[Rfam]
Notes:
Rfam assigns this 61-nucleotide RNA sequence from Calothrix sp. NIES-4101 to the family "Plastid-psbN 5UTR RNA". It is annotated as a cis-regulatory element.
RNA sequence: AAAAACCGCCAUGAGAGGGGUUGUACCCCAGCCAGGAGCCACUUUACCAUAUUCAGAAUUU
Numbered sequence: 001a002a003a004a005a006c007c008g009c010c011a012u013g014a015g016a017g018g019g020g021u022u023g024u025a026c027c028c029c030a031g032c033c034a035g036g037a038g039c040c041a042c043u044u045u046a047c048c049a050u051a052u053u054c055a056g057a058a059u060u061u
Stems, first nucleotide, its partner, number of pairs: 017045005023039002026036002